Rfam assigns this 49-nucleotide sequence from Streptomyces sp. TS71-3 to the family "raiA-hairpin RNA". The source organism's lineage runs through Bacteria, Bacillati, Actinomycetes, Kitasatosporales and Streptomyces.

RNA sequence: CACCUAGUCCGAGGUCCCGGAACGAACCGGGAACCUGGUGCACAAGGGA
Numbered sequence: 001c002a003c004c005u006a007g008u009c010c011g012a013g014g015u016c017c018c019g020g021a022a023c024g025a026a027c028c029g030g031g032a033a034c035c036u037g038g039u040g041c042a043c044a045a046g047g048g049a
Base pairs, nucleotide, nucleotide: 013035014034015033016031017030018029019028020027
It scores 55 bits against the family's covariance model.